[Rfam]
RNA sequence: UUGCUUCAGUGAGGGUGUUGCUUAGGCCACCUUUGGAUUAAAAAUGAAAACAACUACUCUCUGAGCAAC
Number, nucleotide and partner (000 for none) at each position: 001u068002u067003g066004c065005u064006u063007c000008a000009g000010u000011g000012a000013g000014g000015g000016u000017g000018u000019u000020g000021c000022u000023u000024a000025g000026g000027c000028c000029a000030c000031c000032u000033u000034u000035g000036g000037a000038u000039u000040a000041a000042a000043a000044a000045u000046g000047a000048a000049a000050a000051c000052a000053a000054c000055u000056a000057c000058u000059c000060u000061c000062u000063g006064a005065g004066c003067a002068a001069c000